[Rfam]
RNA: TPP riboswitch aptamer (THI element)
RNA sequence: CUAGAUCUAACGGGGUGCUUUGUCCUAUCCGGGACAAGGCUGAGAGGUUUGGCCAACCCGAAGAACCUGAUCCGGUUAACACCGGCGGAGGGAUUAGACGGCUUCCAUUC
Number, nucleotide and partner (000 for none) at each position: 001c000002u000003a000004g000005a000006u098007c097008u096009a095010a094011c060012g059013g058014g057015g000016u000017g040018c039019u038020u037021u036022g035023u034024c033025c032026u000027a000028u000029c000030c000031g000032g025033g024034a023035c022036a021037a020038g019039g018040c017041u000042g000043a000044g000045a000046g000047g053048u000049u000050u000051g000052g000053c047054c000055a000056a000057c014058c013059c012060g011061a000062a000063g000064a000065a000066c091067c090068u089069g000070a000071u000072c085073c084074g083075g082076u000077u000078a000079a000080c000081a000082c075083c074084g073085g072086c000087g000088g000089a068090g067091g066092g000093a000094u010095u009096a008097g007098a006099c000100g000101g000102c000103u000104u000105c000106c000107a000108u000109u000110c000